RNA sequence: CCCCCAAGGGGAAGCGAAGACCCUAUAGAGCUUUACUGCAGGCUGUCGCUGGGACACGGUCGCUGAUGUGCAGCAUAGGUAGGAGGUGUUACACAGGUACCCGCGCUAGCGGGCCACCGAGCCAUCAGUGAAAUACUACCCGUCAGUGACUGUGACCCUCACUCCGGGAGGAGGACACCGGUAGCCGGGCAGUUUGACUGGGGCGGUACGCGCUCGAAAAGAUAUCGAGCGCGCCCUAAGUUCAUCUCAUCCGAGUCGGAGACUCGGAGAAGAGCGCAAGAGCAAAAGAUGAGCUGACAGUGUCCUACACAACGAGGGACGCUGACGCGAAAGCGUGGUCUAGCGAUCUUAUGAGCCCGCCCGAUGCGGGCCAUAAGCGACAGAAAAGCUACCUUAGGGAUAACAGAGUCGUCACUCGCAAGAGCACAUAUCGACCGAGUGGCUUGCUACCUCGAUGUCGGUUCCCUCCAUCCUGCCCGUGCAGAAGCGGGCAAGGGUGAGGUUGUUCGCCUAUUAAAGGAGGUCGUGAGCUGGGUUUAGACCGUCGUGAGACAGGUCGGCUGCUAUCUAUUGGGGGUGUU
Numbered sequence: 001c002c003c004c005c006a007a008g009g010g011g012a013a014g015c016g017a018a019g020a021c022c023c024u025a026u027a028g029a030g031c032u033u034u035a036c037u038g039c040a041g042g043c044u045g046u047c048g049c050u051g052g053g054a055c056a057c058g059g060u061c062g063c064u065g066a067u068g069u070g071c072a073g074c075a076u077a078g079g080u081a082g083g084a085g086g087u088g089u090u091a092c093a094c095a096g097g098u099a100c101c102c103g104c105g106c107u108a109g110c111g112g113g114c115c116a117c118c119g120a121g122c123c124a125u126c127a128g129u130g131a132a133a134u135a136c137u138a139c140c141c142g143u144c145a146g147u148g149a150c151u152g153u154g155a156c157c158c159u160c161a162c163u164c165c166g167g168g169a170g171g172a173g174g175a176c177a178c179c180g181g182u183a184g185c186c187g188g189g190c191a192g193u194u195u196g197a198c199u200g201g202g203g204c205g206g207u208a209c210g211c212g213c214u215c216g217a218a219a220a221g222a223u224a225u226c227g228a229g230c231g232c233g234c235c236c237u238a239a240g241u242u243c244a245u246c247u248c249a250u251c252c253g254a255g256u257c258g259g260a261g262a263c264u265c266g267g268a269g270a271a272g273a274g275c276g277c278a279a280g281a282g283c284a285a286a287a288g289a290u291g292a293g294c295u296g297a298c299a300g301u302g303u304c305c306u307a308c309a310c311a312a313c314g315a316g317g318g319a320c321g322c323u324g325a326c327g328c329g330a331a332a333g334c335g336u337g338g339u340c341u342a343g344c345g346a347u348c349u350u351a352u353g354a355g356c357c358c359g360c361c362c363g364a365u366g367c368g369g370g371c372c373a374u375a376a377g378c379g380a381c382a383g384a385a386a387a388g389c390u391a392c393c394u395u396a397g398g399g400a401u402a403a404c405a406g407a408g409u410c411g412u413c414a415c416u417c418g419c420a421a422g423a424g425c426a427c428a429u430a431u432c433g434a435c436c437g438a439g440u441g442g443c444u445u446g447c448u449a450c451c452u453c454g455a456u457g458u459c460g461g462u463u464c465c466c467u468c469c470a471u472c473c474u475g476c477c478c479g480u481g482c483a484g485a486a487g488c489g490g491g492c493a494a495g496g497g498u499g500a501g502g503u504u505g506u507u508c509g510c511c512u513a514u515u516a517a518a519g520g521a522g523g524u525c526g527u528g529a530g531c532u533g534g535g536u537u538u539a540g541a542c543c544g545u546c547g548u549g550a551g552a553c554a555g556g557u558c559g560g561c562u563g564c565u566a567u568c569u570a571u572u573g574g575g576g577g578u579g580u581u
Stems, first nucleotide, its partner, number of pairs: 001577007010569003014564002022398004027394002029390005035193004042185007051158003055154014078140005085123003100113005162173004196209001197207003210232006235338002241293006247273002250268006274283002298324009326335001328333001349376005355371005407448003411445001412442007422432002459534001460532004464526001465523005472497002476491005500512004540558004544553003

This 581-nucleotide part of an RNA from Salarchaeum sp. JOR-1 belongs to the Rfam family "Archaeal large subunit ribosomal RNA". Gene Ontology terms of the family: ribosome and structural constituent of ribosome. The match comes from Rfam's covariance-model search (2877 bits). Its Rfam clan is "LSU clan".